[Rfam]
Nucleotides: 112
Stems, first nucleotide, its partner, number of pairs: 007099004011062004016056001017037002021033001044055004068093004074087004
Number, partner (000 for none) and nucleotide at each position: 001000a002000a003000g004000u005000u006000c007099a008098g009097a010096c011062a012061g013060g014059g015000g016056c017037g018036c019000u020000a021033u022000c023000c024000a025000c026000u027000a028000u029000g030000g031000u032000g033021g034000a035000c036018g037017c038000u039000g040000a041000g042000a043000u044055g045054u046053a047052c048000g049000a050000a051000a052047g053046u054045a055044c056016g057000g058000u059014c060013c061012c062011u063000u064000a065000u066000g067000a068093c069092c070091u071090g072000a073000u074087c075086u076085a077084g078000u079000u080000a081000a082000u083000g084077c085076u086075a087074g088000c089000g090071u091070a092069g093068g094000g095000a096010g097009u098008c099007u100000a101000c102000u103000u104000g105000a106000u107000a108000g109000a110000u111000a112000u